[Rfam]
The record is a 318-nucleotide RNA sequence from Tinamus guttatus, which matches "Small Cajal body-specific RNA 7" in Rfam. A search with the family's covariance model found it, with a score of 200 bits. The pairing is the family consensus, mapped onto this sequence. The family's RNA type in Rfam is small Cajal body RNA.
RNA sequence: UGGAAGUGAUGAAAUAGAGAUAAUUGAUGUCUUUCUGAAUGGAGUGUGUAUGGUAAAUAGCAUUUGAAUUAAACUUUUGGGGGGUGAGGGCAGUGUGUGUGUGUGUUUGUGUGUGGUAUAUAAAAGGCUAUAAACUGGGGGCACUGAUAAUGAAGUGCUGAUUCCGGAGUGCAUCUGAGGCAUGUUGUUAAAUUCUGGGGUGUUGCUUUUCAACAUUGCCGAUGAUUAGAGCCCAAAACAAGCUCACCAGACUAGCCUAGGCAUCUUAAAAAUCUCUGACAGGUUCAUUAGUGAAAACGAACCUGUGAUCUGAUCCAA
Number, nucleotide and partner (000 for none) at each position: 001u317002g316003g315004a314005a000006g000007u000008g000009a000010u000011g000012a000013a000014a000015u000016a000017g000018a000019g000020a000021u000022a000023a000024u000025u000026g000027a000028u000029g000030u000031c000032u000033u000034u000035c000036u000037g000038a000039a000040u000041g000042g000043a000044g000045u000046g000047u000048g000049u000050a000051u000052g000053g000054u000055a000056a000057a000058u000059a000060g000061c000062a000063u000064u000065u000066g000067a000068a000069u000070u000071a000072a000073a000074c000075u000076u000077u000078u000079g000080g000081g000082g000083g000084g000085u000086g000087a000088g000089g000090g000091c000092a000093g000094u000095g000096u000097g000098u000099g000100u000101g000102u000103g000104u000105g000106u000107u000108u000109g000110u000111g000112u000113g000114u000115g000116g000117u000118a000119u000120a000121u000122a000123a000124a000125a000126g000127g000128c000129u000130a000131u000132a000133a000134a000135c000136u000137g000138g000139g000140g000141g000142c000143a000144c000145u000146g000147a000148u000149a000150a000151u000152g000153a000154a000155g000156u000157g000158c000159u000160g000161a000162u000163u000164c000165c000166g000167g000168a000169g000170u000171g000172c000173a000174u000175c000176u000177g000178a000179g000180g000181c000182a000183u215184g214185u213186u212187g211188u000189u000190a000191a204192a203193u202194u000195c199196u000197g000198g000199g195200g000201u000202g193203u192204u191205g000206c000207u000208u000209u000210u000211c187212a186213a185214c184215a183216u000217u000218g000219c000220c000221g000222a000223u000224g000225a000226u000227u000228a000229g000230a000231g000232c000233c000234c000235a000236a000237a000238a000239c000240a000241a000242g000243c000244u000245c000246a000247c000248c000249a000250g000251a000252c000253u000254a000255g000256c000257c000258u000259a000260g000261g000262c000263a000264u000265c000266u000267u000268a000269a000270a000271a000272a000273u000274c000275u000276c000277u000278g000279a000280c000281a000282g000283g000284u000285u000286c000287a000288u000289u000290a000291g000292u000293g000294a000295a000296a000297a000298c000299g000300a000301a000302c000303c000304u000305g000306u000307g000308a000309u000310c000311u000312g000313a000314u004315c003316c002317a001318a000